[Rfam]
RNA sequence: UGACUGGUGCAGACGGUCGCGUGCCUUCGGGCAUGAGGAAAGUCCGGGCUGCACAGGGCAAGGAUAACGGAUAACGUCCGCCGAGGGUGACCUUAGGAAUAGUGCAACAGAGAUAUACCGCUGUUUUAUGUCCGCAUAAGGCAGUAAGGGUGGAAAGGCGAGGUAAGAGCUCACCACGUCCCAUGGCAACAUGGGAGGUCUGUAAACUCUAUCCGCAGCAACGCCGACUGGGACCAUGAUUGGCCCGAUCGUCCCGACUGGCGGCUUGAGAUGCACGGCAACGUGCAUUCGAGAUAGAUGACCGUCCACGACAGAACCCGGCUUACGCACCAGUCAUGCC
Numbered sequence: 001u002g003a004c005u006g007g008u009g010c011a012g013a014c015g016g017u018c019g020c021g022u023g024c025c026u027u028c029g030g031g032c033a034u035g036a037g038g039a040a041a042g043u044c045c046g047g048g049c050u051g052c053a054c055a056g057g058g059c060a061a062g063g064a065u066a067a068c069g070g071a072u073a074a075c076g077u078c079c080g081c082c083g084a085g086g087g088u089g090a091c092c093u094u095a096g097g098a099a100u101a102g103u104g105c106a107a108c109a110g111a112g113a114u115a116u117a118c119c120g121c122u123g124u125u126u127u128a129u130g131u132c133c134g135c136a137u138a139a140g141g142c143a144g145u146a147a148g149g150g151u152g153g154a155a156a157g158g159c160g161a162g163g164u165a166a167g168a169g170c171u172c173a174c175c176a177c178g179u180c181c182c183a184u185g186g187c188a189a190c191a192u193g194g195g196a197g198g199u200c201u202g203u204a205a206a207c208u209c210u211a212u213c214c215g216c217a218g219c220a221a222c223g224c225c226g227a228c229u230g231g232g233a234c235c236a237u238g239a240u241u242g243g244c245c246c247g248a249u250c251g252u253c254c255c256g257a258c259u260g261g262c263g264g265c266u267u268g269a270g271a272u273g274c275a276c277g278g279c280a281a282c283g284u285g286c287a288u289u290c291g292a293g294a295u296a297g298a299u300g301a302c303c304g305u306c307c308a309c310g311a312c313a314g315a316a317c318c319c320g321g322c323u324u325a326c327g328c329a330c331c332a333g334u335c336a337u338g339c340c
Base pairs, nucleotide, nucleotide: 001336002335003334004333005332006331007330008329009328010327012306013305014304015303016302017301018300020035021034022033023032024031025030040324041323042322044321045320046319047318048317049218050217051216052215057246058245062214063213064212065211066210068080069079070078071077082096083094084093085092086091097209098208102207103206104203105202106201118149119148120145121144122143123142124141125140126139127138128137129136130135157175158174160172161171162170179196180195181194182193183192184191185190222263223262224261225260231254232253237251238250239249240248241247270289271288272287273286274285275284276283277282